The record is an 89-nucleotide sequence from Aerolutibacter daejeonensis, which matches "c-di-GMP-I-GGC riboswitch aptamer" in Rfam. A search with the family's covariance model found it, with a score of 60 bits. Lineage of the source: Bacteria > Pseudomonadati > Pseudomonadota > Lysobacteraceae > Aerolutibacter daejeonensis.

[Rfam]
RNA sequence: AACGACAAAGGCAAAACCACCGAAAGGUGGCGACGCAAAGUCACCGGCCUGUCGGGCGCAUUGCGCCCGUGGUAGCGGGACCGCCGGAG
Numbered sequence: 001a002a003c004g005a006c007a008a009a010g011g012c013a014a015a016a017c018c019a020c021c022g023a024a025a026g027g028u029g030g031c032g033a034c035g036c037a038a039a040g041u042c043a044c045c046g047g048c049c050u051g052u053c054g055g056g057c058g059c060a061u062u063g064c065g066c067c068c069g070u071g072g073u074a075g076c077g078g079g080a081c082c083g084c085c086g087g088a089g
Stems, first nucleotide, its partner, number of pairs: 003086002011036002017030005034075001040081003044078003047073003